The record is a 45-nucleotide sequence from Hoylesella marshii, which matches "Acido-Lenti-1 RNA" in Rfam. It is annotated as a small RNA. A search with the family's covariance model found it, with a score of 39 bits. The organism belongs to Hoylesella marshii, within Bacteria.
[Rfam]
RNA sequence: CCCAGCGCUUCGCACUGGGCUCAUAUCUUUCGCACUUUCAGUGCU
Numbered sequence: 001c002c003c004a005g006c007g008c009u010u011c012g013c014a015c016u017g018g019g020c021u022c023a024u025a026u027c028u029u030u031c032g033c034a035c036u037u038u039c040a041g042u043g044c045u
Stems, first nucleotide, its partner, number of pairs: 001019005007013002032044005